[Rfam]
RNA sequence: UCGUACGCGGGAGGCUGAGACACGCGGUCCGAAUUCGUGCCGCCGGGACCGCGCCGAGCCACUGGCGAGACCGACCCACGCUGGC
Numbered sequence: 001u002c003g004u005a006c007g008c009g010g011g012a013g014g015c016u017g018a019g020a021c022a023c024g025c026g027g028u029c030c031g032a033a034u035u036c037g038u039g040c041c042g043c044c045g046g047g048a049c050c051g052c053g054c055c056g057a058g059c060c061a062c063u064g065g066c067g068a069g070a071c072c073g074a075c076c077c078a079c080g081c082u083g084g085c
Stems, first nucleotide, its partner, number of pairs: 002084001006080002009077003013060003023053007039071001041067004

This 85-nucleotide RNA belongs to the Rfam family "c-di-GMP-II-GAG riboswitch aptamer". Rfam's curators put it in the seed alignment. Its family is annotated with regulation of gene expression and cyclic-di-GMP binding in the Gene Ontology.